[Rfam]
RNA: FMN riboswitch aptamer (RFN element)
Organism: Clostridium sp. CAG:217
RNA sequence: AAUACUUUUCGGGGCAGGGUGCAAAUCCCUACCGGCAGUGAAAGUCUGCGAACCCGGCAACGGGCCGAGCCUGUGGAAUUCAGGCACCGACGGUGAGCAAGGUAUUCCCUUGUAAGUCCGGAUGAGAGGAAAGGUAC
Numbered sequence: 001a002a003u004a005c006u007u008u009u010c011g012g013g014g015c016a017g018g019g020u021g022c023a024a025a026u027c028c029c030u031a032c033c034g035g036c037a038g039u040g041a042a043a044g045u046c047u048g049c050g051a052a053c054c055c056g057g058c059a060a061c062g063g064g065c066c067g068a069g070c071c072u073g074u075g076g077a078a079u080u081c082a083g084g085c086a087c088c089g090a091c092g093g094u095g096a097g098c099a100a101g102g103u104a105u106u107c108c109c110u111u112g113u114a115a116g117u118c119c120g121g122a123u124g125a126g127a128g129g130a131a132a133g134g135u136a137c
Stems, first nucleotide, its partner, number of pairs: 005133006017029003033089002035049004044087002053064002069085005091120003